Source information: tRNA: a 72-nucleotide sequence. It is annotated as a transfer RNA.
[Rfam]
RNA sequence: GCCCAUAUAGCUCAGUGGCAGAGCACUUCCUUGGUAAGGAAGAGGUCGGCGGUUCAAUCCCGCUUGUGGGCU
Numbered sequence: 001g002c003c004c005a006u007a008u009a010g011c012u013c014a015g016u017g018g019c020a021g022a023g024c025a026c027u028u029c030c031u032u033g034g035u036a037a038g039g040a041a042g043a044g045g046u047c048g049g050c051g052g053u054u055c056a057a058u059c060c061c062g063c064u065u066g067u068g069g070g071c072u
Stems, first nucleotide, its partner, number of pairs: 001071007010024004026042005048064005